[Rfam]
RNA sequence: UGGCGCCCAAAGUGGGGCUUGGAUACUGGGGACAAUGUGAGGGAGACAAUGGAGGAGAAGGGGUGCACACCCGCUAAAUCUCAAGCAAUUCGGAGACGCCCCGUGGGAGCCUGCCAUGACCGAACCCAAGGUAAGUCAAGCCAUCCAAAUCAUGGGGCAAGAAUUAGGCCAGCAUCAGAUUUACGUUAUACAGUUAAUGGAAGCUGUCAAGACAAGAGAAGUACAGGUUAAGACUGAAAAAAGAUGGAGAAGAGUAGGAGAUGCAUUACAAGACUUUUAUACAGUGUUUGGACCUGGAAAGGUUCCUGUUACU
Numbered sequence: 001u002g003g004c005g006c007c008c009a010a011a012g013u014g015g016g017g018c019u020u021g022g023a024u025a026c027u028g029g030g031g032a033c034a035a036u037g038u039g040a041g042g043g044a045g046a047c048a049a050u051g052g053a054g055g056a057g058a059a060g061g062g063g064u065g066c067a068c069a070c071c072c073g074c075u076a077a078a079u080c081u082c083a084a085g086c087a088a089u090u091c092g093g094a095g096a097c098g099c100c101c102c103g104u105g106g107g108a109g110c111c112u113g114c115c116a117u118g119a120c121c122g123a124a125c126c127c128a129a130g131g132u133a134a135g136u137c138a139a140g141c142c143a144u145c146c147a148a149a150u151c152a153u154g155g156g157g158c159a160a161g162a163a164u165u166a167g168g169c170c171a172g173c174a175u176c177a178g179a180u181u182u183a184c185g186u187u188a189u190a191c192a193g194u195u196a197a198u199g200g201a202a203g204c205u206g207u208c209a210a211g212a213c214a215a216g217a218g219a220a221g222u223a224c225a226g227g228u229u230a231a232g233a234c235u236g237a238a239a240a241a242a243g244a245u246g247g248a249g250a251a252g253a254g255u256a257g258g259a260g261a262u263g264c265a266u267u268a269c270a271a272g273a274c275u276u277u278u279a280u281a282c283a284g285u286g287u288u289u290g291g292a293c294c295u296g297g298a299a300a301g302g303u304u305c306c307u308g309u310u311a312c313u
Stems, first nucleotide, its partner, number of pairs: 006031003012026003036048003085132002089129002097122002102118005140158002144156004166207001168204002215310002217307002220304003225295005